[Rfam]
RNA sequence: UGCAGAUGAUGAUCACUUUUUGCUGCCUAAGCACACGUGAUGACAAACCACCAAGAUCGCUGAUGCA
Numbered sequence: 001u002g003c004a005g006a007u008g009a010u011g012a013u014c015a016c017u018u019u020u021u022g023c024u025g026c027c028u029a030a031g032c033a034c035a036c037g038u039g040a041u042g043a044c045a046a047a048c049c050a051c052c053a054a055g056a057u058c059g060c061u062g063a064u065g066c067a
Base pairs, nucleotide, nucleotide: 001067002066003065004064
This 67-nucleotide RNA sequence from Piprites chloris belongs to the Rfam family "Small nucleolar RNA SNORD24". The family has 14 seed sequences and 2,843 matches in Rfam 15.1. Gene Ontology terms of the family: RNA processing and nucleolus. The source organism's lineage runs through Eukaryota, Metazoa, Eumetazoa, Neoaves and Piprites. On this family, see Qu et al., Nucleic Acids Res 1995: "U24, a novel intron-encoded small nucleolar RNA with two 12 nt long, phylogenetically conserved complementarities to 28S rRNA".